[Rfam]
RNA: Small nucleolar RNA snoR2/U65
Organism: Zingiber officinale
RNA sequence: GGCCUGAUGCCACGUCUCCAGUAGUGAAUGCAGUGACUGGUGAUGCUAUUAUCAGGCCAAUACAAAGGCCUGUUAGGCAUUUCGUUUGCUGAUAGGAAUCUGUUGAUAACUUUUAAUUUAUCUACGGAGCCGUUUACGGCGAUUACAUCC
Numbered sequence: 001g002g003c004c005u006g007a008u009g010c011c012a013c014g015u016c017u018c019c020a021g022u023a024g025u026g027a028a029u030g031c032a033g034u035g036a037c038u039g040g041u042g043a044u045g046c047u048a049u050u051a052u053c054a055g056g057c058c059a060a061u062a063c064a065a066a067g068g069c070c071u072g073u074u075a076g077g078c079a080u081u082u083c084g085u086u087u088g089c090u091g092a093u094a095g096g097a098a099u100c101u102g103u104u105g106a107u108a109a110c111u112u113u114u115a116a117u118u119u120a121u122c123u124a125c126g127g128a129g130c131c132g133u134u135u136a137c138g139g140c141g142a143u144u145a146c147a148u149c150c
Stems, first nucleotide, its partner, number of pairs: 002057007009049001013045004018040001020038003024031002082142005095131002100127003105122004